This 94-nucleotide RNA sequence from Centaurea solstitialis belongs to the Rfam family "Small nucleolar RNA R11/Z151". Its family is annotated with nucleolus and RNA processing in the Gene Ontology. Pairs were carried over by alignment from the consensus structure, which was predicted with PFOLD. On this family, see Barneche et al., J Mol Biol 2001: "Identification of 66 box C/D snoRNAs in Arabidopsis thaliana: extensive gene duplications generated multiple isoforms predicting new ribosomal RNA 2'-O-methylation sites". A search with the family's covariance model found it, with a score of 83 bits. The family has 5 seed sequences and 802 matches in Rfam 15.1.

RNA sequence: GAGCUUAUGAUGAUAAAUAUAAUUAUCUUAGCGGAUUUCAGUGAGAUUUGAUAUAUUUGAAUCCAUGAUCUGUUUGUUACACACACUGAAGCUC
Numbered sequence: 001g002a003g004c005u006u007a008u009g010a011u012g013a014u015a016a017a018u019a020u021a022a023u024u025a026u027c028u029u030a031g032c033g034g035a036u037u038u039c040a041g042u043g044a045g046a047u048u049u050g051a052u053a054u055a056u057u058u059g060a061a062u063c064c065a066u067g068a069u070c071u072g073u074u075u076g077u078u079a080c081a082c083a084c085a086c087u088g089a090a091g092c093u094c
Stems, first nucleotide, its partner, number of pairs: 001094005